[Rfam]
RNA sequence: UGGUCUGCUGCUGGAUCCGCUUGAUGGUGGCCCCCUUGGGGCCCACUACCAGCCCCACUACGCGGUAGGGCAC
Numbered sequence: 001u002g003g004u005c006u007g008c009u010g011c012u013g014g015a016u017c018c019g020c021u022u023g024a025u026g027g028u029g030g031c032c033c034c035c036u037u038g039g040g041g042c043c044c045a046c047u048a049c050c051a052g053c054c055c056c057a058c059u060a061c062g063c064g065g066u067a068g069g070g071c072a073c
Base pairs, nucleotide, nucleotide: 004069005068006067007066008065009064010063011062012060013059014058019053020052021051023049025048026047027046028045030043032041033040034039